[Rfam]
RNA sequence: AUUUUUAUAGGCGAUGGAGUUCGCCAUUAAAUGCUUUAUGCUAAUGACUCCUACAAAAUA
Numbered sequence: 001a002u003u004u005u006u007a008u009a010g011g012c013g014a015u016g017g018a019g020u021u022c023g024c025c026a027u028u029a030a031a032u033g034c035u036u037u038a039u040g041c042u043a044a045u046g047a048c049u050c051c052u053a054c055a056a057a058a059u060a
Base pairs, nucleotide, nucleotide: 010025011024012023013022016051017050018049019048020047021046033041034040
A member of the RNA family "Fluoride riboswitch aptamer (crcB RNA motif)" from Clostridium perfringens, 60 nucleotides long. Pairs were carried over by alignment from the consensus structure, which is taken from published work.